The family of this 233-nucleotide part of an RNA from Flavihumibacter petaseus is "Bacterial large subunit ribosomal RNA".
RNA sequence: GAGUUACUCCUCACUGGCGAGGUUAAGUUCUUCAGUAACGGAGCCGUAGCGAAAGCGAGUCCAAAUAGGGCGAUUAAGUCAGUGGGGGUAGACGCGAAACUUUGUGAUCUAUCCAUGGGCAGGUUGAAGGUGUGGUAACACACACUGGAGGACCGAACUCAUUAACGUUGAAAAGUUAUGGGAUGACCUGUGGAUAGGGGUGAAAGGCCAAUCAAACUGAGAGAUAGCUCGUU
Number, nucleotide and partner (000 for none) at each position: 001g000002a000003g000004u000005u090006a089007c088008u000009c087010c086011u085012c084013a083014c082015u081016g080017g079018c078019g000020a000021g045022g044023u043024u042025a000026a000027g039028u038029u037030c000031u000032u000033c000034a000035g000036u000037a029038a028039c027040g000041g000042a024043g023044c022045c021046g000047u000048a000049g056050c055051g000052a000053a000054a000055g050056c049057g000058a000059g071060u070061c069062c068063a000064a000065a000066u000067a000068g062069g061070g060071c059072g000073a000074u000075u000076a000077a000078g018079u017080c016081a015082g014083u013084g012085g011086g010087g009088g007089u006090a005091g000092a000093c231094g230095c000096g228097a000098a000099a000100c221101u220102u219103u000104g217105u216106g000107a000108u000109c197110u196111a195112u194113c193114c192115a191116u190117g189118g188119g187120c185121a000122g154123g153124u152125u151126g000127a000128a000129g146130g145131u144132g143133u142134g141135g000136u000137a000138a000139c000140a000141c134142a133143c132144a131145c130146u129147g000148g000149a000150g000151g125152a124153c123154c122155g000156a000157a000158c182159u181160c180161a000162u000163u178164a177165a176166c175167g000168u000169u000170g000171a000172a000173a000174a000175g166176u165177u164178a163179u000180g160181g159182g158183a000184u000185g120186a000187c119188c118189u117190g116191u115192g114193g113194a112195u111196a110197g109198g000199g209200g208201u207202g000203a000204a000205a000206g000207g201208c200209c199210a000211a000212u000213c000214a000215a000216a105217c104218u000219g102220a101221g100222a000223g000224a000225u000226a000227g000228c096229u000230c094231g093232u000233u000
Its Rfam clan is "LSU clan". The source organism's lineage runs through Bacteria, Pseudomonadati, Chitinophagales, Flavihumibacter and Flavihumibacter petaseus. Pairs were carried over by alignment from the consensus structure, which is taken from published work. The match comes from Rfam's covariance-model search (2748 bits).